[Rfam]
RNA sequence: UAAUAUUAUGAUAAAAAAGCUCCCUCUUCUGGAAUGUUGUUGAGGACUCUUGCUGGCAGAAUCGAACCAAUUAUUUAAAUGGCCAUCACUGAGUAA
Numbered sequence: 001u002a003a004u005a006u007u008a009u010g011a012u013a014a015a016a017a018a019g020c021u022c023c024c025u026c027u028u029c030u031g032g033a034a035u036g037u038u039g040u041u042g043a044g045g046a047c048u049c050u051u052g053c054u055g056g057c058a059g060a061a062u063c064g065a066a067c068c069a070a071u072u073a074u075u076u077a078a079a080u081g082g083c084c085a086u087c088a089c090u091g092a093g094u095a096a
Stems, first nucleotide, its partner, number of pairs: 006096004
Dot-bracket structure: .....((((...................................................................................))))
RNA: Small nucleolar RNA R30/Z108
Organism: Dendrobium catenatum